Description: Small nucleolar RNA SNORA68: a 132-nucleotide RNA from Salmo trutta. The literature on the family includes a 1997 paper in Genes Dev by Ganot et al., "The family of box ACA small nucleolar RNAs is defined by an evolutionarily conserved secondary structure and ubiquitous sequence elements essential for RNA accumulation". Rfam links the family to the GO terms RNA processing and nucleolus. By type it is an H/ACA-box small nucleolar RNA.
[Rfam]
RNA sequence: UAUGCACCCUAACCCAAAGGCCAUAUCAAAUGAAUGGUAUGAUUUUGUCAGGUGUGCUAAAAUCAACAUGUACCUUGUCGCCUUUCCCUGAAGCUGCUGUGCCAUUGAAAGUGAAUUCAAGGUUCAACAAUA
Numbered sequence: 001u002a003u004g005c006a007c008c009c010u011a012a013c014c015c016a017a018a019g020g021c022c023a024u025a026u027c028a029a030a031u032g033a034a035u036g037g038u039a040u041g042a043u044u045u046u047g048u049c050a051g052g053u054g055u056g057c058u059a060a061a062a063u064c065a066a067c068a069u070g071u072a073c074c075u076u077g078u079c080g081c082c083u084u085u086c087c088c089u090g091a092a093g094c095u096g097c098u099g100u101g102c103c104a105u106u107g108a109a110a111g112u113g114a115a116u117u118c119a120a121g122g123u124u125c126a127a128c129a130a131u132a
Stems, first nucleotide, its partner, number of pairs: 004057004009052001019044002022041007070125001072123005082111005089104002093102002
U68 is a member of the H/ACA class of small nucleolar RNAs (snoRNAs) which act as guides in the the modification of uridines to pseudouridines. The base pairs follow the family's consensus structure, which was predicted with PFOLD. The family has 26 seed sequences and 1,079 matches in Rfam 15.1.